[Rfam]
RNA sequence: UCGGUCUGCGGUUCACGUGCGCGGCUCGCGCGCACGACCCGGAGGCC
Numbered sequence: 001u002c003g004g005u006c007u008g009c010g011g012u013u014c015a016c017g018u019g020c021g022c023g024g025c026u027c028g029c030g031c032g033c034a035c036g037a038c039c040c041g042g043a044g045g046c047c
Stems, first nucleotide, its partner, number of pairs: 003047002006045001009041003016036008

Shown here is a 47-nucleotide RNA sequence, a member of the family "L31-Actinobacteria ribosomal protein leader".